[Rfam]
TPP riboswitch aptamer (THI element): a 137-nucleotide RNA sequence from Neomicrococcus aestuarii. The family's consensus secondary structure is taken from published work.
RNA sequence: GAUUAACGACAGGGGAGCGCACGUUUUCCGGCACCGGCAACGGGGCAGGACUACAGGGCGCUGAGAGUGCGAUACAUCGCAGACCCUCGAACCUGAUCCGGUUAGUACCGGCGCUAGGGAGUCGAGUUUCUCGGGGU
Numbered sequence: 001g002a003u004u005a006a007c008g009a010c011a012g013g014g015g016a017g018c019g020c021a022c023g024u025u026u027u028c029c030g031g032c033a034c035c036g037g038c039a040a041c042g043g044g045g046c047a048g049g050a051c052u053a054c055a056g057g058g059c060g061c062u063g064a065g066a067g068u069g070c071g072a073u074a075c076a077u078c079g080c081a082g083a084c085c086c087u088c089g090a091a092c093c094u095g096a097u098c099c100g101g102u103u104a105g106u107a108c109c110g111g112c113g114c115u116a117g118g119g120a121g122u123c124g125a126g127u128u129u130c131u132c133g134g135g136g137u
Base pairs, nucleotide, nucleotide: 007124008123009122010121011087012086013085014084017061018060019059020058068081069080070079071078072077092118093117094116095115098111099110100109101108
Rfam links the family to the GO term thiamine pyrophosphate binding.